Background:
This 66-nucleotide RNA from Neotoma lepida belongs to the Rfam family "mir-344 microRNA precursor family". A reference for the family is Chiang et al. (2010), "Mammalian microRNAs: experimental evaluation of novel and previously annotated genes", Genes Dev. NCBI's taxonomy places the organism under Eukaryota, Dipnotetrapodomorpha, Mammalia, Rodentia, Neotoma.

[Rfam]
RNA sequence: UCACCAGCCAGGCUCCUGGCUAAAAUCCAGCUCUAAGCUGGAUUUUAGCCUAAGCCUGGCUGUAAA
Numbered sequence: 001u002c003a004c005c006a007g008c009c010a011g012g013c014u015c016c017u018g019g020c021u022a023a024a025a026u027c028c029a030g031c032u033c034u035a036a037g038c039u040g041g042a043u044u045u046u047a048g049c050c051u052a053a054g055c056c057u058g059g060c061u062g063u064a065a066a
Base pairs, nucleotide, nucleotide: 007060008059009058011056012055013054014053018050019049020048021047022046023045024044027041028040029039030038031037